[Rfam]
Rfam assigns this 82-nucleotide sequence from Elysia chlorotica to the family "mir-46/mir-47/mir-281 microRNA precursor family".
The family's consensus secondary structure was predicted with RNAalifold.
The literature on the family includes a 2003 paper in Dev Cell by Aravin et al., "The small RNA profile during Drosophila melanogaster development".
A search with the family's covariance model found it, with a score of 60 bits.
RNA sequence: AGACCGCAGCGCUGAAGGGAGCAUCCGUCGACAGUUAGAGUUGAUGUACUGUCAUGGAGUUGCUCUCUUUACUGCCAGGUCA
Numbered sequence: 001a002g003a004c005c006g007c008a009g010c011g012c013u014g015a016a017g018g019g020a021g022c023a024u025c026c027g028u029c030g031a032c033a034g035u036u037a038g039a040g041u042u043g044a045u046g047u048a049c050u051g052u053c054a055u056g057g058a059g060u061u062g063c064u065c066u067c068u069u070u071a072c073u074g075c076c077a078g079g080u081c082a
Stems, first nucleotide, its partner, number of pairs: 014070005020064003024058004030053003034049002
Dot-bracket structure: .............(((((.(((.((((..(((.((............)).))).))))...))).)))))............